The family of this 85-nucleotide RNA sequence from Mitsuaria sp. WAJ17 is "SucA RNA motif". On this family, see Weinberg et al., Nucleic Acids Res 2007: "Identification of 22 candidate structured RNAs in bacteria using the CMfinder comparative genomics pipeline".

RNA sequence: UCGCAAUCCGCCAACCGGUCAAGCCGUGUCGCGGAAGGUUGUCCAACCAGCCAACAGUUCUGGAAACCGGAACAAGAGGUGAGCG
Numbered sequence: 001u002c003g004c005a006a007u008c009c010g011c012c013a014a015c016c017g018g019u020c021a022a023g024c025c026g027u028g029u030c031g032c033g034g035a036a037g038g039u040u041g042u043c044c045a046a047c048c049a050g051c052c053a054a055c056a057g058u059u060c061u062g063g064a065a066a067c068c069g070g071a072a073c074a075a076g077a078g079g080u081g082a083g084c085g
Stems, first nucleotide, its partner, number of pairs: 002085003007035005016026004037048004050080003057073007
Taxonomically the source falls in Roseateles (Bacteria, Pseudomonadota, Betaproteobacteria, Sphaerotilaceae). The family's RNA type in Rfam is cis-regulatory element.